[Rfam]
RNA sequence: AUCACCUGGGGAUCUUGUUAAAACGCAGAUUAUGAUUCAGCAGGUCUGGGGCUGGGAAGCUUGAGAGUCUGCAUUUCUAACAACUUCCUAUGUGCUGCCAA
Numbered sequence: 001a002u003c004a005c006c007u008g009g010g011g012a013u014c015u016u017g018u019u020a021a022a023a024c025g026c027a028g029a030u031u032a033u034g035a036u037u038c039a040g041c042a043g044g045u046c047u048g049g050g051g052c053u054g055g056g057a058a059g060c061u062u063g064a065g066a067g068u069c070u071g072c073a074u075u076u077c078u079a080a081c082a083a084c085u086u087c088c089u090a091u092g093u094g095c096u097g098c099c100a101a
Stems, first nucleotide, its partner, number of pairs: 003094003009088003015083006021076003025072005031066001033064001
Rfam assigns this 101-nucleotide sequence from Balaenoptera musculus to the family "mir-544 microRNA precursor family". The base pairs follow the family's consensus structure, which was predicted with RNAalifold. A search with the family's covariance model found it, with a score of 69 bits. A reference for the family is Chiang et al. (2010), "Mammalian microRNAs: experimental evaluation of novel and previously annotated genes", Genes Dev. The organism belongs to Balaenoptera, within Eukaryota.